This 182-nucleotide RNA from Acidiferrobacter sp. SPIII_3 belongs to the Rfam family "6S / SsrS RNA". E. coli 6S RNA was the first non coding RNA to be sequenced, but its function was unknown until recently. It consists of 184 nucleotides that fold into an extended hairpin structure with a large single-stranded internal bulge. The 6S RNA specifically associates with RNA polymerase holoenzyme containing the sigma70 specificity factor. Taxonomically the source falls in Acidiferrobacter (Bacteria, Pseudomonadota, Gammaproteobacteria, Acidiferrobacterales). Pairs were carried over by alignment from the consensus structure, which is taken from published work.
RNA sequence: CGCCCCCUGCGGUGUUCGUAGCCAUUCCGUGCCCCUGAACCUAUAACUCUUGCCUCGGGAACCACGAUCUCGGGCGCUGUUGUGCAUGUCCGUCUCGAACGGAAAGCCUGAAGCAUCCGGACGUGUCCCACUUGAACCUUUGGUUCGAGGCAAAGAAUGGUUACGGCACAGGCGGAGGGCGC
Numbered sequence: 001c002g003c004c005c006c007c008u009g010c011g012g013u014g015u016u017c018g019u020a021g022c023c024a025u026u027c028c029g030u031g032c033c034c035c036u037g038a039a040c041c042u043a044u045a046a047c048u049c050u051u052g053c054c055u056c057g058g059g060a061a062c063c064a065c066g067a068u069c070u071c072g073g074g075c076g077c078u079g080u081u082g083u084g085c086a087u088g089u090c091c092g093u094c095u096c097g098a099a100c101g102g103a104a105a106g107c108c109u110g111a112a113g114c115a116u117c118c119g120g121a122c123g124u125g126u127c128c129c130a131c132u133u134g135a136a137c138c139u140u141u142g143g144u145u146c147g148a149g150g151c152a153a154a155g156a157a158u159g160g161u162u163a164c165g166g167c168a169c170a171g172g173c174g175g176a177g178g179g180c181g182c
Base pairs, nucleotide, nucleotide: 002180003179004178005177007175008174009173010172012169013168014167015166017165018164019163031151032150033149036147037146038145039144040143041142057129058128059127063125064124065123066122069120071119072118073117074116076114077113084107085106089103090102091101092100093099